[Rfam]
The record is a 302-nucleotide RNA from Triticum aestivum, which matches "Plant signal recognition particle RNA" in Rfam. The match comes from Rfam's covariance-model search (185 bits).
RNA sequence: GCCGAGCUCAGUUGCGUGAGCUUGUAACCCGAGUGGAGGCAAUAAAGUGAUGUGGAUGCUGUUGUAGUGCUGCGGGCCUGGUCUAGUUGUGCUACCGCUGGCCCGCCUGUACCAAGUUGAGUAGUGGACCGCUUGAGGCCUAUGCGAAAGCUGGGCCUCACGGUUCAUAAUGUGGCAGCCACAGUGUGAGGCUGGCUUCACAGAGUAGCGACAACUGCCUCCUUCCAACGGUGGAAGGAUAACGGGCCGCUACACUCCUAGACUUGGGCCUCAGCAGCCUACUCUAGCGAACCAUCACUUUU
Numbered sequence: 001g002c003c004g005a006g007c008u009c010a011g012u013u014g015c016g017u018g019a020g021c022u023u024g025u026a027a028c029c030c031g032a033g034u035g036g037a038g039g040c041a042a043u044a045a046a047g048u049g050a051u052g053u054g055g056a057u058g059c060u061g062u063u064g065u066a067g068u069g070c071u072g073c074g075g076g077c078c079u080g081g082u083c084u085a086g087u088u089g090u091g092c093u094a095c096c097g098c099u100g101g102c103c104c105g106c107c108u109g110u111a112c113c114a115a116g117u118u119g120a121g122u123a124g125u126g127g128a129c130c131g132c133u134u135g136a137g138g139c140c141u142a143u144g145c146g147a148a149a150g151c152u153g154g155g156c157c158u159c160a161c162g163g164u165u166c167a168u169a170a171u172g173u174g175g176c177a178g179c180c181a182c183a184g185u186g187u188g189a190g191g192c193u194g195g196c197u198u199c200a201c202a203g204a205g206u207a208g209c210g211a212c213a214a215c216u217g218c219c220u221c222c223u224u225c226c227a228a229c230g231g232u233g234g235a236a237g238g239a240u241a242a243c244g245g246g247c248c249g250c251u252a253c254a255c256u257c258c259u260a261g262a263c264u265u266g267g268g269c270c271u272c273a274g275c276a277g278c279c280u281a282c283u284c285u286a287g288c289g290a291a292c293c294a295u296c297a298c299u300u301u302u
Stems, first nucleotide, its partner, number of pairs: 001040003004023007029036002044301009054292001057289005064282004070277004075272001076269004080264007089255003093252002099249007107238002110236001112234003116229004121225001123223002126166006134160009144151002174219005185210003192203003
Pairs were carried over by alignment from the consensus structure, which is taken from published work.